Notes: MIR821 microRNA precursor family: a 272-nucleotide RNA sequence from Oryza glumipatula. On this family, see Luo et al., FEBS Lett 2006: "Rice embryogenic calli express a unique set of microRNAs, suggesting regulatory roles of microRNAs in plant post-embryogenic development". Rfam links the family to the GO terms RISC complex and miRNA-mediated post-transcriptional gene silencing.
RNA sequence: GAUUUCAAAUGGAAAAGUCAUCAACAGCAAAGUUGUAUAACUCAUCAAGGUCUAUAACUUUUAUUUUGGUCAUUUUUUCAUCCGACAAAGUGAUAGUAAUAUUCUUUACAAAAAUCACAUAUCUCUCAUCUGGUUUAAACAUCAACACAGAUAUAUCAAUUUUGUAAACAGUAUUACUAUCACUUUGUCGGAUGAAGAAAUGACCAAAAUAAAAGUUAUAGAUCUUGAUGAGUUAUACAACUUUCCUGUUGAUGACUUUUCCAUUUGAAAUC
Numbered sequence: 001g002a003u004u005u006c007a008a009a010u011g012g013a014a015a016a017g018u019c020a021u022c023a024a025c026a027g028c029a030a031a032g033u034u035g036u037a038u039a040a041c042u043c044a045u046c047a048a049g050g051u052c053u054a055u056a057a058c059u060u061u062u063a064u065u066u067u068g069g070u071c072a073u074u075u076u077u078u079c080a081u082c083c084g085a086c087a088a089a090g091u092g093a094u095a096g097u098a099a100u101a102u103u104c105u106u107u108a109c110a111a112a113a114a115u116c117a118c119a120u121a122u123c124u125c126u127c128a129u130c131u132g133g134u135u136u137a138a139a140c141a142u143c144a145a146c147a148c149a150g151a152u153a154u155a156u157c158a159a160u161u162u163u164g165u166a167a168a169c170a171g172u173a174u175u176a177c178u179a180u181c182a183c184u185u186u187g188u189c190g191g192a193u194g195a196a197g198a199a200a201u202g203a204c205c206a207a208a209a210u211a212a213a214a215g216u217u218a219u220a221g222a223u224c225u226u227g228a229u230g231a232g233u234u235a236u237a238c239a240a241c242u243u244u245c246c247u248g249u250u251g252a253u254g255a256c257u258u259u260u261c262c263a264u265u266u267g268a269a270a271u272c
Base pairs, nucleotide, nucleotide: 014259015258016257017256018255019254020253021252023250024249026247027246030243031242032241033240034239035238036237037236038235039234040233041232042231044229045228046227047226048225049224050223051222052221053220055218056217057216058215059214060213061212062211063210064209065208066207067206069204070203071202072201073200074199075198077196078195079194080193081192083190084189085188086187087186088185089184090183091182092181094179095178096177097176098175099174101172102171103170105168106167107166108165109164110163111162112161115158117156119154120153121152122151133140134139